[Rfam]
RNA sequence: UAUGACCCCUUCGCCGUUCUUCUUCGUAUUCUUUUUUAUCUUCCGCUGAUUUAGGAGGCGAUUCGUCACAAGAAUAAGAAUACGAAGACGAACAAAAAGCCUCCUGUUCUCAGGAGGCUUUUUUUAU
Numbered sequence: 001u002a003u004g005a006c007c008c009c010u011u012c013g014c015c016g017u018u019c020u021u022c023u024u025c026g027u028a029u030u031c032u033u034u035u036u037u038a039u040c041u042u043c044c045g046c047u048g049a050u051u052u053a054g055g056a057g058g059c060g061a062u063u064c065g066u067c068a069c070a071a072g073a074a075u076a077a078g079a080a081u082a083c084g085a086a087g088a089c090g091a092a093c094a095a096a097a098a099g100c101c102u103c104c105u106g107u108u109c110u111c112a113g114g115a116g117g118c119u120u121u122u123u124u125u126a127u
Base pairs, nucleotide, nucleotide: 016093017092018091019090021088022087023086024085025084026083027082028081029080030079031078032077033076036073037072039070042056043055044054057067058066059065060064096121097120098119099118100117101116102115103114104113105112
A member of the RNA family "Phenylalanine leader peptide" from Brenneria rubrifaciens, 127 nucleotides long. A search with the family's covariance model found it, with a score of 104 bits. It is annotated as a cis-regulatory leader. Taxonomically the source falls in Brenneria (Bacteria, Pseudomonadota, Gammaproteobacteria, Pectobacteriaceae). On this family, see Zurawski et al., Proc Natl Acad Sci U S A 1978: "Nucleotide sequence of the leader region of the phenylalanine operon of Escherichia coli".